The record is a 118-nucleotide RNA sequence from Desulfuromonas soudanensis, which matches "Molybdenum/Tungsten riboswitch aptamer (Moco RNA motif)" in Rfam.

[Rfam]
RNA sequence: GCGCCGCUGAAUCUCCGAACCGCUGCGCCUACGGAAAAAUUUCUAUGGCAAGCGGUCUACGGGUCCUGCCGGAAACGGCUCGGCCUCCCAUUGUGGAAAGGAGAUACCAGGCUUCUUC
Numbered sequence: 001g002c003g004c005c006g007c008u009g010a011a012u013c014u015c016c017g018a019a020c021c022g023c024u025g026c027g028c029c030u031a032c033g034g035a036a037a038a039a040u041u042u043c044u045a046u047g048g049c050a051a052g053c054g055g056u057c058u059a060c061g062g063g064u065c066c067u068g069c070c071g072g073a074a075a076c077g078g079c080u081c082g083g084c085c086u087c088c089c090a091u092u093g094u095g096g097a098a099a100g101g102a103g104a105u106a107c108c109a110g111g112c113u114u115c116u117u118c
Base pairs, nucleotide, nucleotide: 003113011105012104013103014102015101016100019056020055021054022053023052024051027049028048029047033044034043035042036041061086062085063084064083065082068079069078070077071076087096088095
The match comes from Rfam's covariance-model search (67 bits).